[Rfam]
RNA: Plant signal recognition particle RNA
RNA sequence: UCUGGGCGGGGUAGCGACCGCCUGUGACCCGAGCGGGAGCUGGAGGGUGCGGAUGUGGGGCGCUCGGUGAGGGCAUGUGAGAGCAUGUCGAGGGCCUGCCCACUCCAUACAUGGAGUUACCGAUUGGGGCCUCGUCGGAGGGUGAGGCCGUGACGGUGUUGGAGCGGAGGGCAUCGCGUGAGGCGGGUAACCGAGCAGCGUUUACUUCUCGCUCCGUGUAGUGGAGGGAUAGCGGGCCUGAAUGUUUCUCGCAGAUCACCCUGCCGGGCAUGCUCCCACGAACCACCUUCC
Numbered sequence: 001u002c003u004g005g006g007c008g009g010g011g012u013a014g015c016g017a018c019c020g021c022c023u024g025u026g027a028c029c030c031g032a033g034c035g036g037g038a039g040c041u042g043g044a045g046g047g048u049g050c051g052g053a054u055g056u057g058g059g060g061c062g063c064u065c066g067g068u069g070a071g072g073g074c075a076u077g078u079g080a081g082a083g084c085a086u087g088u089c090g091a092g093g094g095c096c097u098g099c100c101c102a103c104u105c106c107a108u109a110c111a112u113g114g115a116g117u118u119a120c121c122g123a124u125u126g127g128g129g130c131c132u133c134g135u136c137g138g139a140g141g142g143u144g145a146g147g148c149c150g151u152g153a154c155g156g157u158g159u160u161g162g163a164g165c166g167g168a169g170g171g172c173a174u175c176g177c178g179u180g181a182g183g184c185g186g187g188u189a190a191c192c193g194a195g196c197a198g199c200g201u202u203u204a205c206u207u208c209u210c211g212c213u214c215c216g217u218g219u220a221g222u223g224g225a226g227g228g229a230u231a232g233c234g235g236g237c238c239u240g241a242a243u244g245u246u247u248c249u250c251g252c253a254g255a256u257c258a259c260c261c262u263g264c265c266g267g268g269c270a271u272g273c274u275c276c277c278a279c280g281a282a283c284c285a286c287c288u289u290c291c
Stems, first nucleotide, its partner, number of pairs: 002039002004023006028037003042291008051283001054280005059274004063268006070262004076253008086241001092239008100228002103226005108220010118158005125152002128149009159164001166209005176201004184193003